[Rfam]
RNA sequence: GCGUUCGUAGACGAGUGGUCAAGUCGUCAGUCUGUGACACUGAAGAACGCGGGUUCAAAUCCCGCCGGGCGCC
Dot-bracket structure: (((((((..(((..........))).(((((.......))))).....(((((.......)))))))))))).